RNA: Small nucleolar RNA SNORA24
Organism: Bubo bubo
RNA sequence: AUCCAUGACUCCAUGGGGGCUGCCGUCCGUGGCUGUCUCCCUUCCUAGGCAUGGAAGAGCAGCUCCUUGCUGAUUGGCAUAACUUUUACCGUCUUGUGGGUAUUAGUCGUUGACUGUAGCAAGUAACAGGC
Numbered sequence: 001a002u003c004c005a006u007g008a009c010u011c012c013a014u015g016g017g018g019g020c021u022g023c024c025g026u027c028c029g030u031g032g033c034u035g036u037c038u039c040c041c042u043u044c045c046u047a048g049g050c051a052u053g054g055a056a057g058a059g060c061a062g063c064u065c066c067u068u069g070c071u072g073a074u075u076g077g078c079a080u081a082a083c084u085u086u087u088a089c090c091g092u093c094u095u096g097u098g099g100g101u102a103u104u105a106g107u108c109g110u111u112g113a114c115u116g117u118a119g120c121a122a123g124u125a126a127c128a129g130g131c
Stems, first nucleotide, its partner, number of pairs: 002055006015041004020035001022033003068128002071125001074122003077117003083106002088101003